[Rfam]
RNA sequence: AGUGGUGAUAGAGGUGCGAAAGUCAAAAGUACCCGUGCGGAGGAAGAUGAAUCCGAAGAAGCGCGGAAAAAGGGACAAUCGCCGAAGUCUGCAAUCCUUUCAUCAGGAUGCAAACUGGUUCUGUAUUUAAUAAAUGCAGAGCUGUCAAGAUGAUUCCUCAUCUUGGAGAGCUAUCUCACCU
Numbered sequence: 001a002g003u004g005g006u007g008a009u010a011g012a013g014g015u016g017c018g019a020a021a022g023u024c025a026a027a028a029g030u031a032c033c034c035g036u037g038c039g040g041a042g043g044a045a046g047a048u049g050a051a052u053c054c055g056a057a058g059a060a061g062c063g064c065g066g067a068a069a070a071a072g073g074g075a076c077a078a079u080c081g082c083c084g085a086a087g088u089c090u091g092c093a094a095u096c097c098u099u100u101c102a103u104c105a106g107g108a109u110g111c112a113a114a115c116u117g118g119u120u121c122u123g124u125a126u127u128u129a130a131u132a133a134a135u136g137c138a139g140a141g142c143u144g145u146c147a148a149g150a151u152g153a154u155u156c157c158u159c160a161u162c163u164u165g166g167a168g169a170g171c172u173a174u175c176u177c178a179c180c181u
Base pairs, nucleotide, nucleotide: 007175008174009173010172011171016082017081018080019079022076023075024074033066034065035064036063037062038061086116087115088114090112091111092110093109095107096106117143118142119141120140121139122138123137124136125135126134127133145166146165147164148163149162150161151160
The family of this 181-nucleotide sequence from Jeotgalibacillus campisalis is "Lysine riboswitch aptamer".